Background:
This 91-nucleotide RNA from Feifania hominis belongs to the Rfam family "c-di-GMP-I riboswitch aptamer". The family's consensus secondary structure is taken from published work. It scores 70 bits against the family's covariance model.
RNA sequence: AUGAAAAAAAGGCAAAGCUGUUGAAAGACAGCGACGCAAAGCUUCAGAGCCUAAGCCCGCCCCUCCGCGGGUAUGGUCGUCAGUUGCUAUC
Number, nucleotide and partner (000 for none) at each position: 001a000002u000003g000004a000005a000006a000007a000008a000009a000010a000011g000012g037013c036014a000015a000016a000017g032018c031019u030020g029021u028022u027023g000024a000025a000026a000027g022028a021029c020030a019031g018032c017033g000034a000035c000036g013037c012038a000039a000040a085041g084042c083043u082044u000045c000046a000047g081048a080049g077050c076051c075052u000053a000054a000055g000056c071057c070058c069059g068060c000061c000062c000063c000064u000065c000066c000067g000068c059069g058070g057071g056072u000073a000074u000075g051076g050077u049078c000079g000080u048081c047082a043083g042084u041085u040086g000087c000088u000089a000090u000091c000